[Rfam]
RNA sequence: AGCUUUUUAUGAAGUAUUAGCAAUUUUCUUUGCUGUGGAGGUGGUGAGGAGUGAGGAAAGUACCAUACUGCAGCAGACUUUUAAACUUUAAAUAGACAGGUCUGAGUGCCUGAACUUCCUUUUUCAUUUUACAUUAUCCUCUAAGACUAUCAAUCGCUUGGCAUGCCUACUUCACUUCUUUUAAGAGAAAAAAUGAGUCAAAUUUU
Dot-bracket structure: .(((...(((...)))..)))..........(...((((((.((((......((.(.(((..............((((((.................))))))(.(.(......).).)..)))).))...))))..))))))...)..........((((.....(...(((.(((.....))).).))....)..)))).....

Connexin-43 internal ribosome entry site (IRES): a 206-nucleotide RNA from Sus scrofa. A search with the family's covariance model found it, with a score of 117 bits. A reference for the family is Schiavi et al. (1999), "Connexin43 mRNA contains a functional internal ribosome entry site", FEBS Lett. Its family is annotated with ribosome binding in the Gene Ontology.